[Rfam]
RNA: L4-Archaeoglobi ribosomal protein leades
RNA sequence: CUGAACGUGGCGUAAAGGGUGGACGUAAACCCAGAUGGGUUAUGUGCCCAUUCCCUGCCAUCCCAAUGGCCAGGUGAACGCCCACAUCAG
Numbered sequence: 001c002u003g004a005a006c007g008u009g010g011c012g013u014a015a016a017g018g019g020u021g022g023a024c025g026u027a028a029a030c031c032c033a034g035a036u037g038g039g040u041u042a043u044g045u046g047c048c049c050a051u052u053c054c055c056u057g058c059c060a061u062c063c064c065a066a067u068g069g070c071c072a073g074g075u076g077a078a079c080g081c082c083c084a085c086a087u088c089a090g
Stems, first nucleotide, its partner, number of pairs: 001090004009082005017049003024044005052077002055074002057070005